[Rfam]
RNA: T-box leader
Organism: Anoxybacteroides amylolyticum
RNA sequence: GGAAAAGUGAUGAUGAGGACAUGGGUGUAUUUUUACGGUUUCCAGAGAGGGAAGGCUAGGCUGGAACCUUCCUAACACGAAGAAUGCACUUACCACCUCGGAACUUCACCUGUGAAAGGCUUGUGUGAGUAAUAGGUGACGGAGAAGGCGCCGUUAUGCUAUUCGAGCCAUCGCUGUUCGCGAUGGGAAGAAGGGUGGAACCACGAAACAAACUCGUCCCUUGU
Numbered sequence: 001g002g003a004a005a006a007g008u009g010a011u012g013a014u015g016a017g018g019a020c021a022u023g024g025g026u027g028u029a030u031u032u033u034u035a036c037g038g039u040u041u042c043c044a045g046a047g048a049g050g051g052a053a054g055g056c057u058a059g060g061c062u063g064g065a066a067c068c069u070u071c072c073u074a075a076c077a078c079g080a081a082g083a084a085u086g087c088a089c090u091u092a093c094c095a096c097c098u099c100g101g102a103a104c105u106u107c108a109c110c111u112g113u114g115a116a117a118g119g120c121u122u123g124u125g126u127g128a129g130u131a132a133u134a135g136g137u138g139a140c141g142g143a144g145a146a147g148g149c150g151c152c153g154u155u156a157u158g159c160u161a162u163u164c165g166a167g168c169c170a171u172c173g174c175u176g177u178u179c180g181c182g183a184u185g186g187g188a189a190g191a192a193g194g195g196u197g198g199a200a201c202c203a204c205g206a207a208a209c210a211a212a213c214u215c216g217u218c219c220c221u222u223g224u
Stems, first nucleotide, its partner, number of pairs: 007104002015099004025089006038076003049073006107138007140153003168186007192221004203217004